Background
This 122-nucleotide sequence from Hoeflea prorocentri belongs to the Rfam family "Alphaproteobacterial ar14". For this family Rfam cites "A conserved alpha-proteobacterial small RNA contributes to osmoadaptation and symbiotic efficiency of rhizobia on legume roots" (Robledo et al., Environ Microbiol, 2017). From the family's description: Smr14C2 was renamed NfeR1 (Nodule Formation Efficiency RNA) highly expressed in salt stress and during the symbiotic interaction on legume roots. Taxonomically the source falls in Hoeflea (Bacteria, Pseudomonadota, Hyphomicrobiales, Rhizobiaceae). It is annotated as a small RNA. The pairing is the family consensus, mapped onto this sequence. It scores 64 bits against the family's covariance model.

[Rfam]
RNA sequence: UGCAGUUACCGGGUCAAACCUCCUCCCUUGACCCGGAAAUUGGCUGACGGCUUCUCCUCCUCCCAUAAGUCCGUCAGCCUCUUAUAGAAACGCCCGCCGGCACUUCCCGGUGGGCGUUUUCU
Numbered sequence: 001u002g003c004a005g006u007u008a009c010c011g012g013g014u015c016a017a018a019c020c021u022c023c024u025c026c027c028u029u030g031a032c033c034c035g036g037a038a039a040u041u042g043g044c045u046g047a048c049g050g051c052u053u054c055u056c057c058u059c060c061u062c063c064c065a066u067a068a069g070u071c072c073g074u075c076a077g078c079c080u081c082u083u084a085u086a087g088a089a090a091c092g093c094c095c096g097c098c099g100g101c102a103c104u105u106c107c108c109g110g111u112g113g114g115c116g117u118u119u120u121c122u
Base pairs, nucleotide, nucleotide: 007038009036011034012033013032014031015030016029043078044077045076046075047074048073049072050071052069090117091116092115093114094113095112096111097110098109099108100107